[Rfam]
Nucleotides: 171
Base pairs, nucleotide, nucleotide: 006166008164009163010162011161017077018076019075020074022072023071024070025069032062033061034060035059036058081110082109083108084107085106086105088103089102090101091100092099111137112136114134115133116132117131118130119129120128121127139156140155141154142153143152144151145150
Number, partner (000 for none) and nucleotide at each position: 001000c002000a003000a004000c005000g006166a007000g008164g009163u010162a011161g012000a013000g014000g015000u016000c017077g018076c019075g020074a021000g022072g023071u024070u025069c026000a027000u028000u029000a030000a031000c032062u033061c034060u035059g036058u037000g038000g039000a040000g041000u042000g043000a044000a045000g046000c047000a048000a049000c050000a051000c052000a053000u054000a055000g056000a057000a058036a059035c060034a061033g062032a063000a064000c065000u066000a067000g068000g069025g070024a071023a072022c073000a074020u075019c076018g077017c078000c079000g080000a081110a082109a083108c084107a085106g086105u087000c088103u089102u090101u091100u092099u093000u094000u095000g096000c097000u098000u099092a100091a101090a102089a103088g104000a105086a106085c107084u108083g109082u110081u111137g112136g113000g114134u115133c116132g117131c118130a119129a120128g121127u122000g123000a124000a125000u126000a127121a128120u129119u130118u131117g132116c133115g134114a135000a136112c137111u138000g139156u140155c141154u142153u143152a144151g145150c146000a147000a148000c149000a150145g151144c152143u153142a154141a155140g156139g157000u158000g159000c160000g161011c162010u163009a164008u165000g166006u167000u168000u169000u170000u171000g
The family of this 171-nucleotide sequence from Enterococcus saccharolyticus is "Lysine riboswitch aptamer". It scores 92 bits against the family's covariance model. The family has 47 seed sequences and 3,224 matches in Rfam 15.1. The base pairs follow the family's consensus structure, which is taken from published work. Riboswitches are metabolite binding domains within certain messenger RNAs that serve as precision sensors for their corresponding targets. Allosteric rearrangement of mRNA structure is mediated by ligand binding, and this results in modulation of gene expression.